[Rfam]
RNA sequence: ACGUAGCUUAAGUCGCUGGUAAUAUGAAAAUAAUGCCUGCUGCCUUGGCAUAACAUCAAGAAGGCAUAAACAUAAAUAAAUAAUAAGAUGAGGAUGGUUUUAGUACGUAGCCGUUGCGGAACCCUCAAUGUAAAGAAGGUUCAGAUAGAGCAAUUAAUCGUGCAUGCUAGACUUACCUACAACACAAGGUGAUGGCGGACCAAGUAUCUAUGGAAGACUUCCAGUCCUUAGCGAUA
Numbered sequence: 001a002c003g004u005a006g007c008u009u010a011a012g013u014c015g016c017u018g019g020u021a022a023u024a025u026g027a028a029a030a031u032a033a034u035g036c037c038u039g040c041u042g043c044c045u046u047g048g049c050a051u052a053a054c055a056u057c058a059a060g061a062a063g064g065c066a067u068a069a070a071c072a073u074a075a076a077u078a079a080a081u082a083a084u085a086a087g088a089u090g091a092g093g094a095u096g097g098u099u100u101u102a103g104u105a106c107g108u109a110g111c112c113g114u115u116g117c118g119g120a121a122c123c124c125u126c127a128a129u130g131u132a133a134a135g136a137a138g139g140u141u142c143a144g145a146u147a148g149a150g151c152a153a154u155u156a157a158u159c160g161u162g163c164a165u166g167c168u169a170g171a172c173u174u175a176c177c178u179a180c181a182a183c184a185c186a187a188g189g190u191g192a193u194g195g196c197g198g199a200c201c202a203a204g205u206a207u208c209u210a211u212g213g214a215a216g217a218c219u220u221c222c223a224g225u226c227c228u229u230a231g232c233g234a235u236a
Base pairs, nucleotide, nucleotide: 041066042065043064044063045062046061072235073234089230090229091228092227093226095223096222097221103163104162105161106160107159113154114153115152116151117150119142120141121140122139165206166205167204168203170201
RNA: R2 RNA element
Organism: Drosophila rhopaloa